RNA sequence: CUGGGAAGAGGCGCAAAUUGCUCUUUCUAACUUGUUAGAAGGGGAGGAAAGUCUGGACUCCAUAGGAGAGGAUACCAGCGAAAGGCUGGGGGCCGUAAGGCUACGGAAAGUGCAACAGAAAGUAUUCCGCGGCUUAUCUUCCUUCGGGGAGAUAGACCGACAGGGUGAAAUGUCUGUUUUAGGAACAGACCCCAUCCGGAGUAAUCCGGAUGAAGCGGCAAACCCUAUCCGGAGUAAGUCAAAGUCAGGUAAUGAGUGCUUCCGCUCUACCUGUAGUAAGACGCUUGAGGGCCUUGGCGACAAGGCUCCUAGAUGAAUAAUUUGCCGUCAAAGUUUUACUUUGAUGAACAGAAUCCGGCUUACUCUCUUCCCAGGUUU
Number, nucleotide and partner (000 for none) at each position: 001c374002u373003g372004g371005g370006a369007a368008g367009a366010g365011g363012c000013g325014c324015a323016a322017a321018u320019u319020g000021c044022u043023c042024u041025u040026u039027c038028u037029a036030a000031c000032u000033u000034g000035u000036u029037a028038g027039a026040a025041g024042g023043g022044g021045a000046g000047g000048a000049a361050a360051g359052u000053c358054u357055g356056g355057a354058c234059u233060c232061c231062a000063u000064a000065g262066g261067a000068g260069a000070g230071g229072a228073u227074a226075c089076c088077a087078g086079c085080g000081a000082a000083a000084g000085g079086c078087u077088g076089g075090g104091g102092g101093c100094c099095g000096u000097a000098a000099g094100g093101c092102u091103a000104c090105g225106g224107a000108a000109a000110g223111u222112g219113c218114a000115a000116c000117a000118g000119a000120a000121a000122g000123u000124a000125u000126u000127c164128c163129g000130c159131g158132g157133c000134u155135u154136a153137u152138c151139u150140u149141c148142c147143u000144u000145c000146g000147g142148g141149g140150a139151g138152a137153u136154a135155g134156a000157c132158c131159g130160a000161c000162a000163g128164g127165g000166u000167g000168a000169a000170a000171u000172g190173u189174c188175u187176g186177u185178u000179u000180u000181a000182g000183g000184a000185a177186c176187a175188g174189a173190c172191c000192c000193c212194a211195u210196c209197c208198g207199g206200a205201g000202u000203a000204a000205u200206c199207c198208g197209g196210a195211u194212g193213a000214a000215g000216c000217g000218g113219c112220a000221a000222a111223c110224c106225c105226u074227a073228u072229c071230c070231g061232g060233a059234g058235u000236a000237a000238g282239u281240c280241a000242a000243a000244g000245u000246c273247a272248g271249g270250u269251a268252a000253u000254g000255a000256g266257u000258g000259c000260u068261u066262c065263c000264g000265c000266u256267c000268u251269a250270c249271c248272u247273g246274u000275a000276g000277u000278a000279a000280g240281a239282c238283g000284c000285u000286u000287g000288a000289g308290g307291g306292c305293c304294u303295u302296g301297g000298c000299g000300a000301c296302a295303a294304g293305g292306c291307u290308c289309c000310u000311a000312g000313a000314u000315g000316a000317a000318u000319a019320a018321u017322u016323u015324g014325c013326c000327g000328u000329c000330a000331a000332a000333g000334u000335u000336u000337u000338a000339c000340u000341u000342u000343g000344a000345u000346g000347a000348a000349c000350a000351g000352a000353a000354u057355c056356c055357g054358g053359c051360u050361u049362a000363c011364u000365c010366u009367c008368u007369u006370c005371c004372c003373a002374g001375g000376u000377u000378u000
The family of this 378-nucleotide RNA from Candidatus Criblamydia sequanensis is "Bacterial RNase P class A". About the family: Ribonuclease P (RNase P) is a ubiquitous endoribonuclease, found in archaea, bacteria and eukarya as well as chloroplasts and mitochondria. Its family is annotated with dimeric ribonuclease P complex, tRNA processing and ribonuclease P activity in the Gene Ontology. The family's RNA type in Rfam is ribozyme.